[Rfam]
RNA sequence: AAUGAGAGUGAGUUGCACAGAUUGUUGGAGCAGCAGUGCAGUGGUACAGCAGCUUCAAUCCGACUAUCCCUGAUGACAGACCAAUGUGCACAGGGGCCAUCUGACUCUGA
Numbered sequence: 001a002a003u004g005a006g007a008g009u010g011a012g013u014u015g016c017a018c019a020g021a022u023u024g025u026u027g028g029a030g031c032a033g034c035a036g037u038g039c040a041g042u043g044g045u046a047c048a049g050c051a052g053c054u055u056c057a058a059u060c061c062g063a064c065u066a067u068c069c070c071u072g073a074u075g076a077c078a079g080a081c082c083a084a085u086g087u088g089c090a091c092a093g094g095g096g097c098c099a100u101c102u103g104a105c106u107c108u109g110a
Base pairs, nucleotide, nucleotide: 006107007106008105022062024060025058026057027056028055030053031052036047037046038045039044
Rfam assigns this 110-nucleotide RNA sequence from Acipenser ruthenus to the family "Small nucleolar RNA SNORD67".
Rfam describes the family as follows. snoRNA HBII-166 belongs to the C/D family of snoRNAs.
The organism belongs to Acipenser, within Eukaryota.
Its family is annotated with RNA processing and nucleolus in the Gene Ontology.
A reference for the family is Huttenhofer et al. (2001), "RNomics: an experimental approach that identifies 201 candidates for novel, small, non-messenger RNAs in mouse", EMBO J.
The family's RNA type in Rfam is C/D-box small nucleolar RNA.